The family of this 68-nucleotide sequence from Medicago truncatula is "MIR2629 microRNA precursor family". The source organism's lineage runs through Eukaryota, Viridiplantae, Embryophyta, Tracheophyta and Medicago.
[Rfam]
RNA sequence: GACAGUUAUUUCCUCGGCAGUUAACUGCAGCCGGUUUUUUAAAUCUUCGGCAGUUAACUGCUGAGGGG
Numbered sequence: 001g002a003c004a005g006u007u008a009u010u011u012c013c014u015c016g017g018c019a020g021u022u023a024a025c026u027g028c029a030g031c032c033g034g035u036u037u038u039u040u041a042a043a044u045c046u047u048c049g050g051c052a053g054u055u056a057a058c059u060g061c062u063g064a065g066g067g068g
Stems, first nucleotide, its partner, number of pairs: 011067002014064015